[Rfam]
Shown here is a 200-nucleotide sequence from Paraliobacillus quinghaiensis, a member of the family "Group II catalytic intron D1-D4-5".
Its family is annotated with Group II intron splicing in the Gene Ontology.
The family has 139 seed sequences and 720 matches in Rfam 15.1.
The match comes from Rfam's covariance-model search (99 bits).
On this family, see Bonen and Vogel, Trends Genet 2001: "The ins and outs of group II introns".
About the family: Group II introns are found in rRNA, tRNA and mRNA of organelles in fungi, plants and protists, and also in mRNA in bacteria.

RNA sequence: UUGAAGGAUUAUAUCGAAGAAUCAAAUGAAGAGGUAACGCUCGGAGGGGUUCUCUCUUAGUCGAUUAGCACUGGAUUCAGUAAGGUUGACAGUGUUAAGAGCUCGGUGAAAAGGCGUUAGAAUUUACCGUAACAGUGAAGUUUAGCUGACGAAAGCCUACCCGCGGGGGUGGUGUAAAUCAUGAUGCUUGAGUUGAAUGG
Numbered sequence: 001u002u003g004a005a006g007g008a009u010u011a012u013a014u015c016g017a018a019g020a021a022u023c024a025a026a027u028g029a030a031g032a033g034g035u036a037a038c039g040c041u042c043g044g045a046g047g048g049g050u051u052c053u054c055u056c057u058u059a060g061u062c063g064a065u066u067a068g069c070a071c072u073g074g075a076u077u078c079a080g081u082a083a084g085g086u087u088g089a090c091a092g093u094g095u096u097a098a099g100a101g102c103u104c105g106g107u108g109a110a111a112a113g114g115c116g117u118u119a120g121a122a123u124u125u126a127c128c129g130u131a132a133c134a135g136u137g138a139a140g141u142u143u144a145g146c147u148g149a150c151g152a153a154a155g156c157c158u159a160c161c162c163g164c165g166g167g168g169g170u171g172g173u174g175u176a177a178a179u180c181a182u183g184a185u186g187c188u189u190g191a192g193u194u195g196a197a198u199g200g
Base pairs, nucleotide, nucleotide: 018053019052020051021050022049023048033041034040054192055191056190061106062105063104064103065098066097067096068095069094070093071092072091073090078085113188114187115186116185117184122179123178124177125176126175127174128151129150130149134147135146155173156172157171159170160169161168162167